[Rfam]
RNA sequence: AAAAAUAAAGUUGCUACAACUCAUAUAUACCCUAGAAUAAGGCUAGGGAGUCUCUACCGGAUAACCGUAAAUUAUCUGACUAUGAGUGGAAAUCAAUAUGUA
Numbered sequence: 001a002a003a004a005a006u007a008a009a010g011u012u013g014c015u016a017c018a019a020c021u022c023a024u025a026u027a028u029a030c031c032c033u034a035g036a037a038u039a040a041g042g043c044u045a046g047g048g049a050g051u052c053u054c055u056a057c058c059g060g061a062u063a064a065c066c067g068u069a070a071a072u073u074a075u076c077u078g079a080c081u082a083u084g085a086g087u088g089g090a091a092a093u094c095a096a097u098a099u100g101u102a
Base pairs, nucleotide, nucleotide: 019087020086021085022084023083024082025081030048031047032046033045034044035043058078059077060076061075062074063073064072

The record is a 102-nucleotide RNA from Gottschalkia purinilytica, which matches "Purine riboswitch aptamer" in Rfam. Lineage of the source: Bacteria > Bacillota > Tissierellia > Gottschalkiaceae > Gottschalkia. Riboswitches are metabolite binding domains within certain messenger RNAs that serve as precision sensors for their corresponding targets. Allosteric rearrangement of mRNA structure is mediated by ligand binding, and this results in modulation of gene expression. A class of riboswitches that selectively recognises guanine and becomes saturated at concentrations as low as 5 nM. In Bacillus subtilis, this mRNA motif is located on at least five separate transcriptional units that together encode 17 genes that are mostly involved in purine transport and purine nucleotide biosynthesis. It has also been shown that some members of this family are specific for adenine instead. A search with the family's covariance model found it, with a score of 88 bits. Pairs were carried over by alignment from the consensus structure, which is taken from published work.